Background
SAM-III riboswitch aptamer (SMK box): an 82-nucleotide sequence from Lentilactobacillus curieae. Lineage of the source: Bacteria > Bacillota > Lactobacillales > Lactobacillaceae > Lentilactobacillus. The match comes from Rfam's covariance-model search (62 bits). Gene Ontology terms of the family: regulation of translational initiation and methionine adenosyltransferase activity.
RNA sequence: CAUAGUUAUGAGUUCCCGAUAGGAUCCACGACAGUGGAGAAGCCUUGUAACCAUAAAAAAUAACGAUGGGGGAAAGACGAUG
Numbered sequence: 001c002a003u004a005g006u007u008a009u010g011a012g013u014u015c016c017c018g019a020u021a022g023g024a025u026c027c028a029c030g031a032c033a034g035u036g037g038a039g040a041a042g043c044c045u046u047g048u049a050a051c052c053a054u055a056a057a058a059a060a061u062a063a064c065g066a067u068g069g070g071g072g073a074a075a076g077a078c079g080a081u082g
Stems, first nucleotide, its partner, number of pairs: 013074005021045003025038005051069004